[Rfam]
RNA sequence: AUGAGGAUAUAGGGAGAGACCGCAACGCACGCUCGCGGCGCCGAAGGAGUAAACCGUCACCGGUGAAUCUCUCAGGCAAAAGGACCUGUAUCGGACG
Numbered sequence: 001a002u003g004a005g006g007a008u009a010u011a012g013g014g015a016g017a018g019a020c021c022g023c024a025a026c027g028c029a030c031g032c033u034c035g036c037g038g039c040g041c042c043g044a045a046g047g048a049g050u051a052a053a054c055c056g057u058c059a060c061c062g063g064u065g066a067a068u069c070u071c072u073c074a075g076g077c078a079a080a081a082g083g084a085c086c087u088g089u090a091u092c093g094g095a096c097g
Stems, first nucleotide, its partner, number of pairs: 006092008020038004040077003043073002047071003053064002

Shown here is a 97-nucleotide sequence from Paenibacillus whitsoniae, a member of the family "Glycine riboswitch aptamer". Rfam describes the family as follows. This family represents the bacterial glycine riboswitch. It scores 75 bits against the family's covariance model. Pairs were carried over by alignment from the consensus structure.